[Rfam]
The family of this 93-nucleotide sequence from Nitrosospira multiformis is "c-di-GMP-I riboswitch aptamer". Lineage of the source: Bacteria > Betaproteobacteria > Nitrosomonadales > Nitrosospira > Nitrosospira multiformis. Rfam's curators write: GEMM was predicted in a large-scale screen for bacterial structured RNA regulatory elements. A search with the family's covariance model found it, with a score of 50 bits.
RNA sequence: UACCGUAAAAGCCACACCCGUCGCGAGGCGGGGCCGGAAAGUCCCGGAUUUGCGCAAUUGAAGGGAACUCGCGCAGGUAGCCGGACUGCCAGU
Dot-bracket structure: ...........((...((((((....))))))...))..((((.((((((((((.................)))))))..)))))))......
Numbered sequence: 001u002a003c004c005g006u007a008a009a010a011g012c013c014a015c016a017c018c019c020g021u022c023g024c025g026a027g028g029c030g031g032g033g034c035c036g037g038a039a040a041g042u043c044c045c046g047g048a049u050u051u052g053c054g055c056a057a058u059u060g061a062a063g064g065g066a067a068c069u070c071g072c073g074c075a076g077g078u079a080g081c082c083g084g085a086c087u088g089c090c091a092g093u
Stems, first nucleotide, its partner, number of pairs: 012037002017032006040087004045083003048078007